[Rfam]
RNA sequence: CUCAUGAGUUGCUCAGUAGACAGUGUAGAUUCUGUAUUUUAAUCAGCAGCUACAUCUGGCUACUGGGUCUCUGAUGGCAUUU
Numbered sequence: 001c002u003c004a005u006g007a008g009u010u011g012c013u014c015a016g017u018a019g020a021c022a023g024u025g026u027a028g029a030u031u032c033u034g035u036a037u038u039u040u041a042a043u044c045a046g047c048a049g050c051u052a053c054a055u056c057u058g059g060c061u062a063c064u065g066g067g068u069c070u071c072u073g074a075u076g077g078c079a080u081u082u
Stems, first nucleotide, its partner, number of pairs: 013066006021058002023055006032049004
RNA: mir-221 microRNA precursor family